RNA sequence: CGAGCCGCGGCGGGAGAGUCUCCAGCGGAAGCCUGGAGCACCGAAGGAGCAAAGUUCCCCACAAUCUCUCAGGUCCAGCUACCGCCACGGCCAG
Numbered sequence: 001c002g003a004g005c006c007g008c009g010g011c012g013g014g015a016g017a018g019u020c021u022c023c024a025g026c027g028g029a030a031g032c033c034u035g036g037a038g039c040a041c042c043g044a045a046g047g048a049g050c051a052a053a054g055u056u057c058c059c060c061a062c063a064a065u066c067u068c069u070c071a072g073g074u075c076c077a078g079c080u081a082c083c084g085c086c087a088c089g090g091c092c093a094g
Stems, first nucleotide, its partner, number of pairs: 006089002009086005020038004040074003043070002047068003054060001
RNA: Glycine riboswitch aptamer